[Rfam]
RNA sequence: UACCUGCUUUUCACUCUGCCAACUGGACUUGCAUCUUUAUUGGUCAUUCAAGUGGGGCAAAGGAAAUAUACUAUUAAAACUCAGGCAAAUUGGGUGUUUGUUUUGUAUCUUAUCAGAGGAAAUAAGU
Numbered sequence: 001u002a003c004c005u006g007c008u009u010u011u012c013a014c015u016c017u018g019c020c021a022a023c024u025g026g027a028c029u030u031g032c033a034u035c036u037u038u039a040u041u042g043g044u045c046a047u048u049c050a051a052g053u054g055g056g057g058c059a060a061a062g063g064a065a066a067u068a069u070a071c072u073a074u075u076a077a078a079a080c081u082c083a084g085g086c087a088a089a090u091u092g093g094g095u096g097u098u099u100g101u102u103u104u105g106u107a108u109c110u111u112a113u114c115a116g117a118g119g120a121a122a123u124a125a126g127u
Base pairs, nucleotide, nucleotide: 034057035056036055040051041050042049043048069120071118072117074115082105083103084102085101086100087099088098089097090096
Background:
Rfam assigns this 127-nucleotide RNA from Loxodonta africana to the family "Small nucleolar RNA SNORA27". The family's RNA type in Rfam is H/ACA-box small nucleolar RNA. The family has 24 seed sequences and 819 matches in Rfam 15.1. Pairs were carried over by alignment from the consensus structure. A search with the family's covariance model found it, with a score of 118 bits. Rfam's curators write: ACA27 is a member of the H/ACA class of snoRNA that guide the sites of modification of uridines to pseudouridines.